[Rfam]
RNA sequence: AUGCACACAGAAAGUCGAGAUUGCCGGCUUCAAAGGCUUUAUCGUUGAUUACGUGUGCUAUAACAACGCCAUAGGUAUCAUUCUUCGUCUUCUUAGGCGCGGAACAUCUAAAUAUGGCUACAUUU
Numbered sequence: 001a002u003g004c005a006c007a008c009a010g011a012a013a014g015u016c017g018a019g020a021u022u023g024c025c026g027g028c029u030u031c032a033a034a035g036g037c038u039u040u041a042u043c044g045u046u047g048a049u050u051a052c053g054u055g056u057g058c059u060a061u062a063a064c065a066a067c068g069c070c071a072u073a074g075g076u077a078u079c080a081u082u083c084u085u086c087g088u089c090u091u092c093u094u095a096g097g098c099g100c101g102g103a104a105c106a107u108c109u110a111a112a113u114a115u116g117g118c119u120a121c122a123u124u125u
Base pairs, nucleotide, nucleotide: 003058004057005056006055007054008053016044017043018042020040023037024036025035068118069117070116071115072114073113076110077109081104082103083102084101086099087098088097089096090095
RNA: Caenorhabditis snoRNA ceN48
Organism: Caenorhabditis elegans